Small nucleolar RNA SNORA4: a 125-nucleotide RNA sequence from Mus spicilegus. It scores 61 bits against the family's covariance model. Clan: SNORA4 clan. Pairs were carried over by alignment from the consensus structure, which was predicted with PFOLD. NCBI's taxonomy places the organism under Eukaryota, Metazoa, Sarcopterygii, Myomorpha, Mus.
[Rfam]
RNA sequence: AUAUCAAGAGCUAAUGGGGGUAGAGUAUUACCUUUACCAACUGAGGCUGUUUGGCAGAAUGAGUCAGAUCACACUCCAAAGAGGGCUGUCUCAUUUAUUGUGGUUCACUACUUAUGACCUACAGU
Numbered sequence: 001a002u003a004u005c006a007a008g009a010g011c012u013a014a015u016g017g018g019g020g021u022a023g024a025g026u027a028u029u030a031c032c033u034u035u036a037c038c039a040a041c042u043g044a045g046g047c048u049g050u051u052u053g054g055c056a057g058a059a060u061g062a063g064u065c066a067g068a069u070c071a072c073a074c075u076c077c078a079a080a081g082a083g084g085g086c087u088g089u090c091u092c093a094u095u096u097a098u099u100g101u102g103g104u105u106c107a108c109u110a111c112u113u114a115u116g117a118c119c120u121a122c123a124g125u
Stems, first nucleotide, its partner, number of pairs: 004054005012049002015046001016042002019038004023032001025031002066120002069117003073113001080109002083106007

Notes: Rfam 15.1 lists 290 matches to the family in 136 species. The family's RNA type in Rfam is H/ACA-box small nucleolar RNA. From the family's description: ACA4 is a member of the H/ACA class of snoRNA that guide the sites of modification of uridines to pseudouridines.